[Rfam]
RNA sequence: AUUCUGUUUCAGGGCGGGGUGGAAGUCCCCACUGGCGGUAAACCUGCAUGGCAAGUCCGCGACCCCGAGGCUGCGGCUUCGGGCUGACUUGGGUUAGAUUCCCAGACCAACGGUACAGUCCGGAUGGAAGAAGCAGAAG
Numbered sequence: 001a002u003u004c005u006g007u008u009u010c011a012g013g014g015c016g017g018g019g020u021g022g023a024a025g026u027c028c029c030c031a032c033u034g035g036c037g038g039u040a041a042a043c044c045u046g047c048a049u050g051g052c053a054a055g056u057c058c059g060c061g062a063c064c065c066c067g068a069g070g071c072u073g074c075g076g077c078u079u080c081g082g083g084c085u086g087a088c089u090u091g092g093g094u095u096a097g098a099u100u101c102c103c104a105g106a107c108c109a110a111c112g113g114u115a116c117a118g119u120c121c122g123g124a125u126g127g128a129a130g131a132a133g134c135a136g137a138a139g
Stems, first nucleotide, its partner, number of pairs: 003137008017029003031119002033109002035060004055107002064083002089105005111122003